[Rfam]
Shown here is a 76-nucleotide sequence from Microbacterium oleivorans, a member of the family "6C RNA".
Taxonomically the source falls in Microbacterium (Bacteria, Bacillati, Actinomycetota, Microbacteriaceae).
The family's RNA type in Rfam is cis-regulatory element.
Its family is annotated with sporulation in the Gene Ontology.
RNA sequence: CGCGAUCGUGCUGAUCCCCCCUGAAGCGCGAUCGCGUGGGCGGCACCCUUUCCCCCAAUGGGUGUCGCCCUCCUCU
Numbered sequence: 001c002g003c004g005a006u007c008g009u010g011c012u013g014a015u016c017c018c019c020c021c022u023g024a025a026g027c028g029c030g031a032u033c034g035c036g037u038g039g040g041c042g043g044c045a046c047c048c049u050u051u052c053c054c055c056c057a058a059u060g061g062g063u064g065u066c067g068c069c070c071u072c073c074u075c076u
Stems, first nucleotide, its partner, number of pairs: 002035011036072001038070011